[Rfam]
RNA sequence: UAUUUUGGAAAGUGAGUGAGACAUAGUGUGAUAAAGAAAAAAUAUUUCUUUAUCGUUGUACCCCAACUUGCAUUGCCUGUAGAAAUUGUAGAUCCAAUUUCUCUAUGUUGGGGCCCCGCCAACCUGCACAUUAUCGUAAGCUGACUUUUCGUCAGCUUCUGUGUUGGGGCCCCGCCAACCUGCAUUGCCUGUAGAAUUUCUUUUUUGAAAUUCUCUAUGUUGGGGCCCCGGACUAUAAUUGAAAAAUGCUUGUUACAAGUGCAUUUUAUUUCAGUCAACUACUAACAAUAUAACAUUGUGGAGCCCAGAACUUUGAUUAAU
Numbered sequence: 001u002a003u004u005u006u007g008g009a010a011a012g013u014g015a016g017u018g019a020g021a022c023a024u025a026g027u028g029u030g031a032u033a034a035a036g037a038a039a040a041a042a043u044a045u046u047u048c049u050u051u052a053u054c055g056u057u058g059u060a061c062c063c064c065a066a067c068u069u070g071c072a073u074u075g076c077c078u079g080u081a082g083a084a085a086u087u088g089u090a091g092a093u094c095c096a097a098u099u100u101c102u103c104u105a106u107g108u109u110g111g112g113g114c115c116c117c118g119c120c121a122a123c124c125u126g127c128a129c130a131u132u133a134u135c136g137u138a139a140g141c142u143g144a145c146u147u148u149u150c151g152u153c154a155g156c157u158u159c160u161g162u163g164u165u166g167g168g169g170c171c172c173c174g175c176c177a178a179c180c181u182g183c184a185u186u187g188c189c190u191g192u193a194g195a196a197u198u199u200c201u202u203u204u205u206u207g208a209a210a211u212u213c214u215c216u217a218u219g220u221u222g223g224g225g226c227c228c229c230g231g232a233c234u235a236u237a238a239u240u241g242a243a244a245a246a247u248g249c250u251u252g253u254u255a256c257a258a259g260u261g262c263a264u265u266u267u268a269u270u271u272c273a274g275u276c277a278a279c280u281a282c283u284a285a286c287a288a289u290a291u292a293a294c295a296u297u298g299u300g301g302a303g304c305c306c307a308g309a310a311c312u313u314u315g316a317u318u319a320a321u
Stems, first nucleotide, its partner, number of pairs: 001008001012064001014062001016061003020057003025050002066192002070188003074184003081102008107179005112173002114169005193214008216292007225283001231276004237271002242267004248260004298321002301318002304315001